Background:
This 67-nucleotide RNA sequence belongs to the Rfam family "tRNA". It is annotated as a transfer RNA.

RNA sequence: AGCCUUAAAGUGUUUAUCAUGUCGAAUUGCAAAUUCGAAGGUGUAGAGAAUCCCUCUACUAAGGCUU
Numbered sequence: 001a002g003c004c005u006u007a008a009a010g011u012g013u014u015u016a017u018c019a020u021g022u023c024g025a026a027u028u029g030c031a032a033a034u035u036c037g038a039a040g041g042u043g044u045a046g047a048g049a050a051u052c053c054c055u056c057u058a059c060u061a062a063g064g065c066u067u
Stems, first nucleotide, its partner, number of pairs: 001066007010020003022038005043059005